The record is a 115-nucleotide sequence from Olsenella sp. KH1P3, which matches "TPP riboswitch aptamer (THI element)" in Rfam. The organism belongs to Olsenella, within Bacteria.
[Rfam]
RNA sequence: UGGACGCACACGGGGAGCUGGGGAUUUGGCCCGGCUGAGAGGAAUGACCCAAUCAUUCGACCCUAGAACCUGAUCCGGGUAAUGCCGGCGUAGGGACCAGAGCACCGCAUGUUCG
Numbered sequence: 001u002g003g004a005c006g007c008a009c010a011c012g013g014g015g016a017g018c019u020g021g022g023g024a025u026u027u028g029g030c031c032c033g034g035c036u037g038a039g040a041g042g043a044a045u046g047a048c049c050c051a052a053u054c055a056u057u058c059g060a061c062c063c064u065a066g067a068a069c070c071u072g073a074u075c076c077g078g079g080u081a082a083u084g085c086c087g088g089c090g091u092a093g094g095g096a097c098c099a100g101a102g103c104a105c106c107g108c109a110u111g112u113u114c115g
Stems, first nucleotide, its partner, number of pairs: 006103002009100001012063003017035005042058005069094004075088004